About this RNA
The record is an 85-nucleotide sequence, which matches "c-di-GMP-II-GAG riboswitch aptamer" in Rfam. Pairs were carried over by alignment from the consensus structure, which is taken from published work. Rfam links the family to the GO terms regulation of gene expression and cyclic-di-GMP binding.
RNA sequence: AUUUCAGGGGGAAGCUAUGAAGCUUAGGGCACAAAAAUGGUUGCUAAUCCUAAGCUGAGCUAAUGGCAAGACCGGCCUCCGUUAU
Dot-bracket structure: ((..(.(((((.(((......((((((((.........[[[[[[[..))))))))...)))...]]]]]..]]..))))))..))
Numbered sequence: 001a002u003u004u005c006a007g008g009g010g011g012a013a014g015c016u017a018u019g020a021a022g023c024u025u026a027g028g029g030c031a032c033a034a035a036a037a038u039g040g041u042u043g044c045u046a047a048u049c050c051u052a053a054g055c056u057g058a059g060c061u062a063a064u065g066g067c068a069a070g071a072c073c074g075g076c077c078u079c080c081g082u083u084a085u
Stems, first nucleotide, its partner, number of pairs: 001085002005081001007080005013061003022055008039073002041069005
It is one of the family's seed sequences. Clan: c-di-GMP_II riboswitch clan. For this family Rfam cites "Bioinformatic analysis of riboswitch structures uncovers variant classes with altered ligand specificity" (Weinberg et al., Proc Natl Acad Sci U S A, 2017).